Annotation:
This 74-nucleotide RNA from Stanieria cyanosphaera belongs to the Rfam family "Glutamine riboswitch aptamer (glnA leader)". It scores 41 bits against the family's covariance model. Rfam links the family to the GO term glutamine binding. Lineage of the source: Bacteria > Bacillati > Pleurocapsales > Stanieria > Stanieria cyanosphaera.
RNA sequence: AUCGUUCAUCUUUUUUGCAAGUAUAAGAAAAGACAGAAGUAAGAAACUAUUUCAACAUCCUGAAAGAACGCACC
Number, nucleotide and partner (000 for none) at each position: 001a000002u000003c070004g069005u068006u067007c066008a000009u033010c032011u031012u030013u029014u028015u027016u026017g000018c000019a000020a000021g000022u000023a000024u000025a000026a016027g015028a014029a013030a012031a011032g010033a009034c000035a000036g071037a000038a000039g000040u000041a000042a061043g060044a000045a000046a000047c000048u000049a000050u000051u000052u000053c000054a000055a000056c000057a000058u000059c000060c043061u042062g000063a000064a000065a000066g007067a006068a005069c004070g003071c036072a000073c000074c000